Rhodo-rpoB RNA: a 91-nucleotide sequence from Halovulum marinum.
NCBI's taxonomy places the organism under Bacteria, Pseudomonadota, Alphaproteobacteria, Rhodobacterales, Halovulum.
RNA sequence: GAUCCGGGUGCGGAAGUUGGGACCUUCCGCAAGUAUGGGAUCCCCUUGCCCCUGGCAGGACCGCGAUCGCGCGCGACCCACGCGCUGAUCC
Numbered sequence: 001g002a003u004c005c006g007g008g009u010g011c012g013g014a015a016g017u018u019g020g021g022a023c024c025u026u027c028c029g030c031a032a033g034u035a036u037g038g039g040a041u042c043c044c045c046u047u048g049c050c051c052c053u054g055g056c057a058g059g060a061c062c063g064c065g066a067u068c069g070c071g072c073g074c075g076a077c078c079c080a081c082g083c084g085c086u087g088a089u090c091c
Stems, first nucleotide, its partner, number of pairs: 001042005010030007065090004069085005

The base pairs follow the family's consensus structure, which is taken from published work.